RNA sequence: GUGAGAACCAUUUGAAUCAGAUAGUGUAGUGAUUCACAUGGUUCUCGC
Numbered sequence: 001g002u003g004a005g006a007a008c009c010a011u012u013u014g015a016a017u018c019a020g021a022u023a024g025u026g027u028a029g030u031g032a033u034u035c036a037c038a039u040g041g042u043u044c045u046c047g048c
Stems, first nucleotide, its partner, number of pairs: 001048011013036007